[Rfam]
c-di-GMP-I riboswitch aptamer: a 92-nucleotide sequence from Alicyclobacillus hesperidum.

RNA sequence: CCGAUUGCAAGGCAAACCAGCGGAAACGCUGGGGCGCAAAGCCACGGGUCUACGGAUUCUACCUUCGGAUCUAAGAUGGCCGGGCUGCCAAG
Numbered sequence: 001c002c003g004a005u006u007g008c009a010a011g012g013c014a015a016a017c018c019a020g021c022g023g024a025a026a027c028g029c030u031g032g033g034g035c036g037c038a039a040a041g042c043c044a045c046g047g048g049u050c051u052a053c054g055g056a057u058u059c060u061a062c063c064u065u066c067g068g069a070u071c072u073a074a075g076a077u078g079g080c081c082g083g084g085c086u087g088c089c090a091a092g
Stems, first nucleotide, its partner, number of pairs: 012037002017032006040086004045082003048077003055071004
Annotation: Pairs were carried over by alignment from the consensus structure, which is taken from published work.